[Rfam]
RNA sequence: UUCUCAUCCAGAGUGGUGGAGGGACUGGCCCGAUGAAACCCGGCAACCGGCCUAUAUGGCAGUGGUGCUAAUUCCAGCAGGAUUAUUCCUGGAAGAUGAGCA
Numbered sequence: 001u002u003c004u005c006a007u008c009c010a011g012a013g014u015g016g017u018g019g020a021g022g023g024a025c026u027g028g029c030c031c032g033a034u035g036a037a038a039c040c041c042g043g044c045a046a047c048c049g050g051c052c053u054a055u056a057u058g059g060c061a062g063u064g065g066u067g068c069u070a071a072u073u074c075c076a077g078c079a080g081g082a083u084u085a086u087u088c089c090u091g092g093a094a095g096a097u098g099a100g101c102a
Stems, first nucleotide, its partner, number of pairs: 001102001003100006013041001015040003021031003025077004042069004047065002050060003073094001078091004
RNA: SAM riboswitch aptamer (S box leader)
Organism: Desulfitobacterium hafniense